[Rfam]
RNA sequence: CACAGAGUAGAGAUUUGUGCGUGAAGUGCCCAAUGAACGGGGAGUUGUCGUUGGGACGAAAGGUUAACCUGCGGUACAAAUUUCGCAUCCCGCUGUU
Numbered sequence: 001c002a003c004a005g006a007g008u009a010g011a012g013a014u015u016u017g018u019g020c021g022u023g024a025a026g027u028g029c030c031c032a033a034u035g036a037a038c039g040g041g042g043a044g045u046u047g048u049c050g051u052u053g054g055g056a057c058g059a060a061a062g063g064u065u066a067a068c069c070u071g072c073g074g075u076a077c078a079a080a081u082u083u084c085g086c087a088u089c090c091c092g093c094u095g096u097u
Stems, first nucleotide, its partner, number of pairs: 002096004010084010020073003026057002029055008040090003044086001061070003
The record is a 97-nucleotide RNA from Anaeromassilibacillus sp. An172, which matches "THF (Tetrahydrofolate) riboswitch aptamer" in Rfam.
Rfam's curators write: Tetrahydrofolate (THF) riboswitch was first reported for Ames et al. as an RNA motif in 5' untranslated (5'-UTR)regions of folate transport and biosynthesis genes in Firmicutes genomes.
The family's consensus secondary structure is taken from published work.